This 71-nucleotide RNA from Gloeothece verrucosa belongs to the Rfam family "Cyano-1 RNA".
RNA sequence: UUCGGUGUGAGGAGAAAUGUAGAAAAGCGUUUGGGGUCGAAACACGGCAAGACUCCCAGGCGCUUUUCUCA
Numbered sequence: 001u002u003c004g005g006u007g008u009g010a011g012g013a014g015a016a017a018u019g020u021a022g023a024a025a026a027g028c029g030u031u032u033g034g035g036g037u038c039g040a041a042a043c044a045c046g047g048c049a050a051g052a053c054u055c056c057c058a059g060g061c062g063c064u065u066u067u068c069u070c071a
Stems, first nucleotide, its partner, number of pairs: 015067001024066005031059005036053003
NCBI's taxonomy places the organism under Bacteria, Bacillati, Cyanobacteriota, Aphanothecaceae, Gloeothece verrucosa. The base pairs follow the family's consensus structure, which is taken from published work. It is annotated as a small RNA.